[Rfam]
RNA sequence: ACGUCCCUCGCGGGAGAGACCGCGCCUGACGCACCCCGGCAUGCCGGGAGGUGACGGGUGUGGCGCCGAAGGAGCAACCGCCCCGGAAACUCUCAGGCAAAGAGGACCGCAUGGGGACG
Numbered sequence: 001a002c003g004u005c006c007c008u009c010g011c012g013g014g015a016g017a018g019a020c021c022g023c024g025c026c027u028g029a030c031g032c033a034c035c036c037c038g039g040c041a042u043g044c045c046g047g048g049a050g051g052u053g054a055c056g057g058g059u060g061u062g063g064c065g066c067c068g069a070a071g072g073a074g075c076a077a078c079c080g081c082c083c084c085g086g087a088a089a090c091u092c093u094c095a096g097g098c099a100a101a102g103a104g105g106a107c108c109g110c111a112u113g114g115g116g117a118c119g
Stems, first nucleotide, its partner, number of pairs: 006114002010110004020063009065098003068094002072092003078086002
Dot-bracket structure: .....((..((((......(((((((((..........................))))))))).(((((..(((...((.....))...))))).)))........))))..)).....
RNA: Glycine riboswitch aptamer